[Rfam]
RNA: int-alpA RNA
RNA sequence: GGUGGGGAUAGGCAGGCCUGCCGACAAGCGCGCAUCCCACGCGCUUCCCCGCUUCACCAUGGGAGC
Numbered sequence: 001g002g003u004g005g006g007g008a009u010a011g012g013c014a015g016g017c018c019u020g021c022c023g024a025c026a027a028g029c030g031c032g033c034a035u036c037c038c039a040c041g042c043g044c045u046u047c048c049c050c051g052c053u054u055c056a057c058c059a060u061g062g063g064a065g066c
Stems, first nucleotide, its partner, number of pairs: 001053008011022004028044005036065001038063001